[Rfam]
Nucleotides: 216
Base pairs, nucleotide, nucleotide: 010106013103055065056064057063083092084091085090174184175183177182190207191206192205193204194203195202196201
Number, partner (000 for none) and nucleotide at each position: 001000u002000u003000a004000g005000c006000u007000c008000c009000a010106u011000c012000g013103c014000a015000a016000c017000a018000g019000g020000g021000c022000g023000a024000g025000u026000g027000c028000a029000g030000g031000a032000g033000g034000c035000c036000a037000g038000u039000c040000a041000u042000g043000u044000u045000u046000u047000u048000c049000g050000a051000u052000a053000a054000c055065g056064u057063g058000g059000u060000g061000a062000u063057c064056g065055c066000u067000g068000g069000a070000g071000u072000g073000u074000u075000g076000a077000c078000c079000g080000u081000a082000g083092g084091u085090c086000u087000c088000a089000u090085g091084g092083u093000g094000g095000u096000g097000u098000u099000u100000c101000u102000c103013g104000g105000c106010g107000g108000a109000u110000u111000u112000g113000g114000a115000u116000u117000u118000u119000u120000u121000a122000u123000c124000u125000g126000g127000a128000a129000a130000g131000a132000c133000u134000c135000a136000c137000a138000u139000a140000a141000g142000a143000g144000g145000a146000a147000g148000a149000a150000a151000c152000c153000c154000u155000a156000g157000g158000u159000c160000u161000u162000u163000u164000c165000a166000g167000a168000g169000a170000a171000c172000g173000a174184g175183c176000a177182c178000g179000c180000a181000a182177g183175g184174c185000a186000u187000u188000u189000u190207g191206g192205g193204c194203g195202a196201c197000u198000u199000c200000g201196g202195u203194c204193g205192c206191c207190u208000u209000u210000u211000u212000u213000u214000u215000u216000g
Shown here is a 216-nucleotide RNA from Pseudomonas asplenii, a member of the family "PhrS". The family's consensus secondary structure was predicted with CMfinder. The match comes from Rfam's covariance-model search (181 bits). It is annotated as a small RNA. Rfam links the family to the GO term quorum sensing. The literature on the family includes a 2006 paper in Nucleic Acids Res by Livny et al., "Identification of 17 Pseudomonas aeruginosa sRNAs and prediction of sRNA-encoding genes in 10 diverse pathogens using the bioinformatic tool sRNAPredict2".